[Rfam]
RNA sequence: UGCAGUGUUACAGUACCUGCACCCAGCAGCUUUCUGGUGGGAUGUUCAAAGAGCAGUGCUAAUGCAGUGCAGUGUUUGGCAUCCUUCGUUCUUCUCCAGCUGGGUCUGUUAAACCUGGUAUUUUUGCUGAAACAGUC
Numbered sequence: 001u002g003c004a005g006u007g008u009u010a011c012a013g014u015a016c017c018u019g020c021a022c023c024c025a026g027c028a029g030c031u032u033u034c035u036g037g038u039g040g041g042a043u044g045u046u047c048a049a050a051g052a053g054c055a056g057u058g059c060u061a062a063u064g065c066a067g068u069g070c071a072g073u074g075u076u077u078g079g080c081a082u083c084c085u086u087c088g089u090u091c092u093u094c095u096c097c098a099g100c101u102g103g104g105u106c107u108g109u110u111a112a113a114c115c116u117g118g119u120a121u122u123u124u125u126g127c128u129g130a131a132a133c134a135g136u137c
Stems, first nucleotide, its partner, number of pairs: 002059003006055002017051002019045003023041002025038001027036003064124001066122003070117003078106003082102001

The family of this 137-nucleotide RNA sequence from Myiagra hebetior is "Small nucleolar RNA SNORA8". Its family is annotated with nucleolus and RNA processing in the Gene Ontology. About the family: ACA8 is a member of the H/ACA class of snoRNA that guide the sites of modification of uridines to pseudouridines.